Overview: The record is an 84-nucleotide sequence from Triticum aestivum, which matches "MIR1120/MIR1122 microRNA precursor family" in Rfam. For this family Rfam cites "Cloning and characterization of microRNAs from wheat (Triticum aestivum L.)" (Yao et al., Genome Biol, 2007).
[Rfam]
RNA sequence: AUACUCCCUCCGUCCCAUAAUAUAAGAGCGUUUUUUACACUACAGUGUAAAAAACGCUCUUAUAUUAUGGAACGGAGGGAGUAU
Number, nucleotide and partner (000 for none) at each position: 001a000002u000003a082004c081005u080006c000007c078008c077009u076010c075011c074012g000013u072014c000015c070016c069017a068018u000019a066020a065021u064022a063023u062024a061025a060026g059027a058028g057029c056030g055031u054032u053033u052034u051035u050036u049037a048038c047039a046040c045041u000042a000043c000044a000045g040046u039047g038048u037049a036050a035051a034052a033053a032054a031055c030056g029057c028058u027059c026060u025061u024062a023063u022064a021065u020066u019067a000068u017069g016070g015071a000072a013073c000074g011075g010076a009077g008078g007079g000080a005081g004082u003083a000084u000
A search with the family's covariance model found it, with a score of 95 bits.